[Rfam]
RNA sequence: AAAGGGAAAGCUGAAAACCUUGAACAGAGUAGGCA
Numbered sequence: 001a002a003a004g005g006g007a008a009a010g011c012u013g014a015a016a017a018c019c020u021u022g023a024a025c026a027g028a029g030u031a032g033g034c035a
Stems, first nucleotide, its partner, number of pairs: 002021004010034003
This 35-nucleotide RNA sequence belongs to the Rfam family "DUF805b RNA".